The family of this 232-nucleotide RNA from Novosphingobium endophyticum is "permuted transfer-messenger RNA". Rfam links the family to the GO term RNA catabolic process.

RNA sequence: GACGAUAAACUGCGCCGUGUAAUAGGCACAGCGGACCCGGGGGCGGUACCCGGCGGCUCCACCAUCACCUUGUCCCGGAAGGGGCAACCCUGUUGUCGCAGGGGUGUUGAUGGGGCCGAACUAGGAUCGACGUGUGUUAAAAGACGGUGUUUUCGUCCGGGCUGAGUAACCCGUUAAAGGCUCAAAACUCAUAAGUGCCAACGACAACGAAGCACUUGCUCUCGCUGCGUAA
Numbered sequence: 001g002a003c004g005a006u007a008a009a010c011u012g013c014g015c016c017g018u019g020u021a022a023u024a025g026g027c028a029c030a031g032c033g034g035a036c037c038c039g040g041g042g043g044c045g046g047u048a049c050c051c052g053g054c055g056g057c058u059c060c061a062c063c064a065u066c067a068c069c070u071u072g073u074c075c076c077g078g079a080a081g082g083g084g085c086a087a088c089c090c091u092g093u094u095g096u097c098g099c100a101g102g103g104g105u106g107u108u109g110a111u112g113g114g115g116c117c118g119a120a121c122u123a124g125g126a127u128c129g130a131c132g133u134g135u136g137u138u139a140a141a142a143g144a145c146g147g148u149g150u151u152u153u154c155g156u157c158c159g160g161g162c163u164g165a166g167u168a169a170c171c172c173g174u175u176a177a178a179g180g181c182u183c184a185a186a187a188c189u190c191a192u193a194a195g196u197g198c199c200a201a202c203g204a205c206a207a208c209g210a211a212g213c214a215c216u217u218g219c220u221c222u223c224g225c226u227g228c229g230u231a232a
Base pairs, nucleotide, nucleotide: 001157002156003155004154005153015147016146017145018144027136028135029134031133032132033131037053038052039051040050041049054118055117056116057115058114059113060112158173159172160171161170
The family's RNA type in Rfam is non-coding RNA gene.